[Rfam]
RNA sequence: CGGUACACACAGGGGAGCGCCACAGGGGCGCUGAGAGUGCGGAUCACCGCAGACCCUCAAACCUGAUCCGGUUAGCACCGGCGUAGGGAGUGAGAUCUCCUCGGGC
Numbered sequence: 001c002g003g004u005a006c007a008c009a010c011a012g013g014g015g016a017g018c019g020c021c022a023c024a025g026g027g028g029c030g031c032u033g034a035g036a037g038u039g040c041g042g043a044u045c046a047c048c049g050c051a052g053a054c055c056c057u058c059a060a061a062c063c064u065g066a067u068c069c070g071g072u073u074a075g076c077a078c079c080g081g082c083g084u085a086g087g088g089a090g091u092g093a094g095a096u097c098u099c100c101u102c103g104g105g106c
Stems, first nucleotide, its partner, number of pairs: 006094001008092003011057004017031005038051005062087004068081004
The family of this 106-nucleotide RNA sequence from Tessaracoccus flavus is "TPP riboswitch aptamer (THI element)". The family's consensus secondary structure is taken from published work. The match comes from Rfam's covariance-model search (71 bits).